[Rfam]
RNA sequence: GCCUCUGUCUGAUAUGUUUGAUAUUAGGUUGUUUGAUUGGAAACCAACUAAAUAUCAAACAUAUUCUUACAGCGGC
Numbered sequence: 001g002c003c004u005c006u007g008u009c010u011g012a013u014a015u016g017u018u019u020g021a022u023a024u025u026a027g028g029u030u031g032u033u034u035g036a037u038u039g040g041a042a043a044c045c046a047a048c049u050a051a052a053u054a055u056c057a058a059a060c061a062u063a064u065u066c067u068u069a070c071a072g073c074g075g076c
Stems, first nucleotide, its partner, number of pairs: 005072004011065015027049005
The record is a 76-nucleotide RNA from Gallus gallus, which matches "mir-190 microRNA precursor family" in Rfam. The family is grouped with related families in Rfam's "mir-50 clan". The organism belongs to Gallus, within Eukaryota. The family's consensus secondary structure was predicted with RNAalifold.